[Rfam]
Nucleotides: 117
Base pairs, nucleotide, nucleotide: 005113006112007111008110009109010108017029018028019027032097033096034087035086036049037048038047039046044085045084052063053062054061067083068082069081070080071079089100090099091098
Number, partner (000 for none) and nucleotide at each position: 001000a002000a003000a004000u005113a006112u007111c008110u009109u010108c011000a012000g013000g014000g015000c016000g017029a018028g019027g020000u021000g022000a023000a024000a025000a026000u027019c028018c029017u030000u031000g032097a033096c034087c035086g036049g037048c038047g039046g040000u041000a042000a043000a044085g045084u046039c047038c048037g049036c050000g051000a052063g053062u054061u055000c056000g057000a058000a059000a060000g061054a062053a063052c064000c065000g066000a067083a068082u069081u070080g071079g072000u073000u074000a075000g076000a077000u078000u079071c080070c081069a082068a083067u084045a085044c086035c087034g088000a089100c090099a091098g092000u093000a094000u095000a096033g097032u098091c099090u100089g101000g102000a103000u104000g105000a106000a107000a108010g109009a110008a111007g112006a113005u114000u115000g116000c117000a

The family of this 117-nucleotide RNA from Anaerosphaera aminiphila is "FMN riboswitch aptamer (RFN element)". NCBI's taxonomy places the organism under Bacteria, Bacillati, Tissierellia, Anaerosphaera, Anaerosphaera aminiphila. For this family Rfam cites "A conserved RNA structure element involved in the regulation of bacterial riboflavin synthesis genes" (Gelfand et al., Trends Genet, 1999). The RFN element is a highly conserved domain that is found frequently in the 5'-untranslated regions of prokaryotic mRNAs that encode for flavin mononucleotide (FMN) biosynthesis and transport proteins. A search with the family's covariance model found it, with a score of 105 bits.